RNA sequence: AAGAAGAAAAGUUAGUGGGUUUUAGUUACUUAUUGUGAAAUGUAAAUCGAUAAAAAAGAUAUUAGUAAUUUAUUUGCAAUUUAGUUUUAGUUACUUAUUGUGAAAUGUAAAUUGCUCUCUUUUGUGUAAAGCACAUCAAGCAUGUAGCGUUUUAGUUACUUAUUGUGAAAUGUAAAUGCGAUUUUUGUCAAAGGGACAGCGAUGGGUUACAAGUUUUAGUUACUUAUUGUGAAAUGUAAAUUUACCACCAAAGUCCCUACACUCAAUACCACCAAAGCGUUUUAGUUACUUAUUGUGAAAUAUAAAUGAAAACCUGUUAUACAUAGGAUUAUCUAUUUCCGUUAUAAUUAUUCCUUGCAA
Number, nucleotide and partner (000 for none) at each position: 001a000002a000003g000004a000005a000006g000007a000008a000009a000010a000011g000012u000013u000014a000015g000016u000017g000018g000019g041020u040021u039022u038023u037024a036025g000026u000027u000028a000029c000030u000031u000032a000033u000034u000035g000036u024037g023038a022039a021040a020041u019042g000043u000044a000045a000046a000047u000048c000049g000050a000051u000052a000053a000054a000055a000056a000057a000058g000059a000060u000061a000062u000063u000064a000065g000066u000067a000068a000069u000070u000071u000072a000073u000074u000075u000076g000077c000078a000079a000080u000081u000082u000083a000084g000085u000086u000087u000088u000089a000090g000091u000092u000093a000094c000095u000096u000097a000098u000099u000100g000101u000102g339103a338104a337105a336106u335107g334108u000109a000110a000111a000112u000113u000114g000115c000116u000117c000118u000119c000120u000121u000122u000123u000124g000125u000126g000127u000128a000129a000130a000131g000132c000133a000134c000135a000136u000137c000138a000139a000140g179141c178142a177143u176144g000145u000146a000147g173148c172149g171150u170151u169152u168153u167154a166155g000156u000157u000158a000159c000160u000161u000162a000163u000164u000165g000166u154167g153168a152169a151170a150171u149172g148173u147174a000175a000176a143177u142178g141179c140180g000181a000182u000183u000184u000185u000186u000187g000188u000189c000190a000191a000192a000193g000194g000195g000196a000197c000198a000199g320200c000201g318202a317203u316204g315205g314206g313207u312208u311209a000210c000211a000212a000213g000214u000215u306216u305217u304218a303219g000220u000221u000222a000223c000224u298225u297226a296227u295228u000229g293230u292231g291232a290233a000234a000235u000236g000237u000238a000239a000240a000241u000242u000243u000244a000245c000246c000247a000248c000249c000250a000251a000252a000253g000254u000255c000256c000257c000258u000259a000260c000261a000262c000263u000264c000265a000266a000267u000268a000269c000270c000271a000272c000273c000274a000275a000276a000277g000278c000279g000280u000281u000282u000283u000284a000285g000286u000287u000288a000289c000290u232291u231292a230293u229294u000295g227296u226297g225298a224299a000300a000301u000302a000303u218304a217305a216306a215307u000308g000309a000310a000311a208312a207313c206314c205315u204316g203317u202318u201319a000320u199321a000322c000323a000324u000325a000326g000327g000328a000329u000330u000331a000332u000333c000334u107335a106336u105337u104338u103339c102340c000341g000342u000343u000344a000345u000346a000347a000348u000349u000350a000351u000352u000353c000354c000355u000356u000357g000358c000359a000360a000